Record summary
A member of the RNA family "S-element" from Neomesorhizobium albiziae, 67 nucleotides long. NCBI's taxonomy places the organism under Bacteria, Pseudomonadati, Alphaproteobacteria, Phyllobacteriaceae, Neomesorhizobium. Pairs were carried over by alignment from the consensus structure, which is taken from published work. This family represents a group of S-elements from p42d and related plasmids. The S-element has multiple functions and is believed to act as a negative regulator of repC transcription, be required for efficient replication and act as a translational enhancer of repC.
RNA sequence: UGUCAAGCGUCAUUGGCGCCGUUUCGGCGAGCGGAUUUCUUUUGCCUGAAGAAAGGCGAAGGAAAUG
Numbered sequence: 001u002g003u004c005a006a007g008c009g010u011c012a013u014u015g016g017c018g019c020c021g022u023u024u025c026g027g028c029g030a031g032c033g034g035a036u037u038u039c040u041u042u043u044g045c046c047u048g049a050a051g052a053a054a055g056g057c058g059a060a061g062g063a064a065a066u067g
Base pairs, nucleotide, nucleotide: 010063011062013060014059017058018057019056020055022054023053024052025051029047031045032044033043034042035041
Rfam links the family to the GO terms mRNA transcription and translation regulator activity.
The match comes from Rfam's covariance-model search (80 bits).
The family's RNA type in Rfam is cis-regulatory element.